[Rfam]
Nucleotides: 105
Base pairs, nucleotide, nucleotide: 001104002103005100006099011097012096013095014094015093016092017091018090019089020088021087022086023085024084025083026082027081028080029069030068031067032066033065034064049059050058051057052056
Number, partner (000 for none) and nucleotide at each position: 001104u002103u003000c004000g005100a006099g007000g008000a009000c010000g011097u012096u013095u014094u015093a016092g017091c018090u019089a020088u021087u022086g023085a024084a025083c026082u027081g028080u029069u030068u031067u032066g033065u034064c035000u036000c037000u038000c039000u040000c041000u042000g043000a044000c045000c046000g047000a048000g049059a050058a051057u052056a053000a054000u055000u056052u057051g058050u059049u060000c061000u062000u063000u064034g065033a066032c067031a068030a069029a070000g071000a072000g073000g074000g075000a076000c077000a078000a079000a080028a081027c082026a083025g084024u085023u086022c087021a088020a089019u090018a091017g092016c093015u094014a095013a096012a097011a098000c099006c100005u101000a102000u103002a104001a105000c

Rfam assigns this 105-nucleotide RNA sequence from Plutella xylostella to the family "mir-8517 microRNA precursor family". Pairs were carried over by alignment from the consensus structure, which was predicted with RNAalifold. Taxonomically the source falls in Plutella (Eukaryota, Aparaglossata, Glossata, Ditrysia).